This 64-nucleotide RNA from Myotis lucifugus belongs to the Rfam family "mir-9242 microRNA precursor family". Taxonomically the source falls in Myotis (Eukaryota, Teleostomi, Euteleostomi, Sarcopterygii). A search with the family's covariance model found it, with a score of 62 bits.
[Rfam]
RNA sequence: GGCCUCCCUCUGCAGGGUAAUUGAUCACAGAGCCCCCCGAUUGAUUGCCCUGCAGAGGGUGGCC
Numbered sequence: 001g002g003c004c005u006c007c008c009u010c011u012g013c014a015g016g017g018u019a020a021u022u023g024a025u026c027a028c029a030g031a032g033c034c035c036c037c038c039g040a041u042u043g044a045u046u047g048c049c050c051u052g053c054a055g056a057g058g059g060u061g062g063c064c
Base pairs, nucleotide, nucleotide: 001064002063003062004061006059007058008057009056010055011054012053013052014051015050016049017048018047019046020045021044022043023042024041025040026039030037